The record is a 75-nucleotide RNA from Cnephaeus nilssonii, which matches "mir-9223 microRNA precursor family" in Rfam. It scores 84 bits against the family's covariance model.

RNA sequence: GGCAGUUCUCAGGGGAUGCACCCUGGAAUCAGGCUCCCUCUUCUCUGGUUCCAGGUGCAUCACCUGAGAACCACA
Numbered sequence: 001g002g003c004a005g006u007u008c009u010c011a012g013g014g015g016a017u018g019c020a021c022c023c024u025g026g027a028a029u030c031a032g033g034c035u036c037c038c039u040c041u042u043c044u045c046u047g048g049u050u051c052c053a054g055g056u057g058c059a060u061c062a063c064c065u066g067a068g069a070a071c072c073a074c075a
Base pairs, nucleotide, nucleotide: 002074005071006070007069008068009067010066011065012064013063015061016060017059019057020056021055022054025052026051027050028049029048030047031046032045033044